[Rfam]
RNA sequence: UGAAGAAACAUUGUUGAGUGCAGCGUUGAUGAGCUUUUUUUCUGUUUUGAUAAGUUCAUCAACACUGCAUUUAACGAUGUUUCUU
Numbered sequence: 001u002g003a004a005g006a007a008a009c010a011u012u013g014u015u016g017a018g019u020g021c022a023g024c025g026u027u028g029a030u031g032a033g034c035u036u037u038u039u040u041u042c043u044g045u046u047u048u049g050a051u052a053a054g055u056u057c058a059u060c061a062a063c064a065c066u067g068c069a070u071u072u073a074a075c076g077a078u079g080u081u082u083c084u085u
Stems, first nucleotide, its partner, number of pairs: 006082006013075011025063004030058006

Shown here is an 85-nucleotide RNA sequence from Gossypium mustelinum, a member of the family "MIR397 microRNA precursor family". It scores 62 bits against the family's covariance model. Lineage of the source: Eukaryota > Streptophyta > Spermatophyta > Pentapetalae > Gossypium. The family has 7 seed sequences and 496 matches in Rfam 15.1. Its family is annotated with miRNA-mediated post-transcriptional gene silencing and RISC complex in the Gene Ontology.